[Rfam]
RNA: PreQ1 (pre queuosine) riboswitch aptamer
RNA sequence: CUAGAAGAGGUUCGCAAACUCCCUCUAUAAAAAACUAAGAAAAG
Numbered sequence: 001c002u003a004g005a006a007g008a009g010g011u012u013c014g015c016a017a018a019c020u021c022c023c024u025c026u027a028u029a030a031a032a033a034a035c036u037a038a039g040a041a042a043a044g
Stems, first nucleotide, its partner, number of pairs: 006026005016036001